[Rfam]
RNA sequence: GAUGGCAUUGAUGAGUAUAUACAGACCUGUAAUGAUGUUUGCGGACAUGAUCGCAUAUUUAAUGAACAUCUAAGGGACUGAGCUGUC
Numbered sequence: 001g002a003u004g005g006c007a008u009u010g011a012u013g014a015g016u017a018u019a020u021a022c023a024g025a026c027c028u029g030u031a032a033u034g035a036u037g038u039u040u041g042c043g044g045a046c047a048u049g050a051u052c053g054c055a056u057a058u059u060u061a062a063u064g065a066a067c068a069u070c071u072a073a074g075g076g077a078c079u080g081a082g083c084u085g086u087c
Base pairs, nucleotide, nucleotide: 002086003085004084005083006082
The record is an 87-nucleotide RNA from Zostera marina, which matches "Small nucleolar RNA SNORD25" in Rfam. Rfam links the family to the GO terms nucleolus and RNA processing. On this family, see Tycowski et al., Nature 1996: "A mammalian gene with introns instead of exons generating stable RNA products". The source organism's lineage runs through Eukaryota, Streptophytina, Tracheophyta, Euphyllophyta and Zostera. The family is grouped with related families in Rfam's "SNORD25 clan".